RNA sequence: UUAACUCAAAUUUGUAUGGAGUUGGAACGUUUGCCUACGUUUGCCUCUAGGGGCGCUGUUCGAAUGGCAUAGAAAUUUAAGUUA
Numbered sequence: 001u002u003a004a005c006u007c008a009a010a011u012u013u014g015u016a017u018g019g020a021g022u023u024g025g026a027a028c029g030u031u032u033g034c035c036u037a038c039g040u041u042u043g044c045c046u047c048u049a050g051g052g053g054c055g056c057u058g059u060u061c062g063a064a065u066g067g068c069a070u071a072g073a074a075a076u077u078u079a080a081g082u083u084a
Stems, first nucleotide, its partner, number of pairs: 008078006015071002018068001021065003025061005034052003039047001